[Rfam]
RNA sequence: AGUGAUGAUAGAGGCGCGGAUUUCAAUAGUACCCGACCGGAGGAUGAUUAGAUUCUUUGAAAGUCGGUGAAAGGGGAAGCCGCCGAAGUUGCAAGUUUGCUAAUUCCAACUUGCUGCUGGUUCUACAUUGAAGAAAUGUAGAAUUGUCAGAGUCGAAAAUAGAUUCUGGAGGGCUAUCUCACAU
Numbered sequence: 001a002g003u004g005a006u007g008a009u010a011g012a013g014g015c016g017c018g019g020a021u022u023u024c025a026a027u028a029g030u031a032c033c034c035g036a037c038c039g040g041a042g043g044a045u046g047a048u049u050a051g052a053u054u055c056u057u058u059g060a061a062a063g064u065c066g067g068u069g070a071a072a073g074g075g076g077a078a079g080c081c082g083c084c085g086a087a088g089u090u091g092c093a094a095g096u097u098u099g100c101u102a103a104u105u106c107c108a109a110c111u112u113g114c115u116g117c118u119g120g121u122u123c124u125a126c127a128u129u130g131a132a133g134a135a136a137u138g139u140a141g142a143a144u145u146g147u148c149a150g151a152g153u154c155g156a157a158a159a160u161a162g163a164u165u166c167u168g169g170a171g172g173g174c175u176a177u178c179u180c181a182c183a184u
Stems, first nucleotide, its partner, number of pairs: 007178005016083004021078004033067005087118003091114007119145011147169007

The family of this 184-nucleotide sequence from Rummeliibacillus sp. TYF005 is "Lysine riboswitch aptamer". Riboswitches are metabolite binding domains within certain messenger RNAs that serve as precision sensors for their corresponding targets. The source organism's lineage runs through Bacteria, Bacillati, Bacillota, Bacilli and Rummeliibacillus. Rfam links the family to the GO term lysine biosynthetic process. The family's consensus secondary structure is taken from published work. A search with the family's covariance model found it, with a score of 124 bits.